[Rfam]
RNA sequence: GUUAACUGCGAUGAGUCACUAACAGACCUGUAAUGAUUUGCGGCUAUGAUUGCAGAUUUAUUGAACAUCUAAGGGACUGAGUUAAC
Numbered sequence: 001g002u003u004a005a006c007u008g009c010g011a012u013g014a015g016u017c018a019c020u021a022a023c024a025g026a027c028c029u030g031u032a033a034u035g036a037u038u039u040g041c042g043g044c045u046a047u048g049a050u051u052g053c054a055g056a057u058u059u060a061u062u063g064a065a066c067a068u069c070u071a072a073g074g075g076a077c078u079g080a081g082u083u084a085a086c
Base pairs, nucleotide, nucleotide: 002085003084004083005082006081

Small nucleolar RNA SNORD25: an 86-nucleotide RNA sequence from Trifolium subterraneum.
Clan: SNORD25 clan.
A search with the family's covariance model found it, with a score of 69 bits.
The family's RNA type in Rfam is C/D-box small nucleolar RNA.